[Rfam]
RNA: permuted transfer-messenger RNA
Organism: uncultured Alphaproteobacteria bacterium
RNA sequence: GGCGAUAAACCCUAUAUAGAAUAGACGUAGCGGACCCGGGGGCAGAACCCGGCGUCUCCACCACGCUUCGCCCUUAUGGGCUACGCCUGGCGCAGCCAGGUUGGGCCAUUAGGCCGAAGCAGUGUCCGGCAUAGCUCGUAAGAGCGACGACGGACUGGAUGAGGGGACGAAUUAGACUCGACGUGCGUGAUAAAGGUAUAGAUUUUUCCAGGUAUGAUACUGCCGUAAUAGGUCAUAAACUAAGUGCUAACGAUAACGUUGCACCUGUUGCUCUGAAAGCUGCUGCUUAA
Numbered sequence: 001g002g003c004g005a006u007a008a009a010c011c012c013u014a015u016a017u018a019g020a021a022u023a024g025a026c027g028u029a030g031c032g033g034a035c036c037c038g039g040g041g042g043c044a045g046a047a048c049c050c051g052g053c054g055u056c057u058c059c060a061c062c063a064c065g066c067u068u069c070g071c072c073c074u075u076a077u078g079g080g081c082u083a084c085g086c087c088u089g090g091c092g093c094a095g096c097c098a099g100g101u102u103g104g105g106c107c108a109u110u111a112g113g114c115c116g117a118a119g120c121a122g123u124g125u126c127c128g129g130c131a132u133a134g135c136u137c138g139u140a141a142g143a144g145c146g147a148c149g150a151c152g153g154a155c156u157g158g159a160u161g162a163g164g165g166g167a168c169g170a171a172u173u174a175g176a177c178u179c180g181a182c183g184u185g186c187g188u189g190a191u192a193a194a195g196g197u198a199u200a201g202a203u204u205u206u207u208c209c210a211g212g213u214a215u216g217a218u219a220c221u222g223c224c225g226u227a228a229u230a231g232g233u234c235a236u237a238a239a240c241u242a243a244g245u246g247c248u249a250a251c252g253a254u255a256a257c258g259u260u261g262c263a264c265c266u267g268u269u270g271c272u273c274u275g276a277a278a279g280c281u282g283c284u285g286c287u288u289a290a
Base pairs, nucleotide, nucleotide: 001209002208004206005205014199015198016197017196026187027186028185030184031183032182036052037051038050039049040048053169054168055167056166057165058164059163211224212223213222